[Rfam]
RNA: serC leader
Organism: Mangrovicoccus algicola
RNA sequence: CCUCGGGACACGCUGCCCCAACGCAGCGCGUAUAUCUGGAAGGAUAACAUCA
Numbered sequence: 001c002c003u004c005g006g007g008a009c010a011c012g013c014u015g016c017c018c019c020a021a022c023g024c025a026g027c028g029c030g031u032a033u034a035u036c037u038g039g040a041a042g043g044a045u046a047a048c049a050u051c052a
Base pairs, nucleotide, nucleotide: 011028012027013026014025015024016023033046034045035044036043037042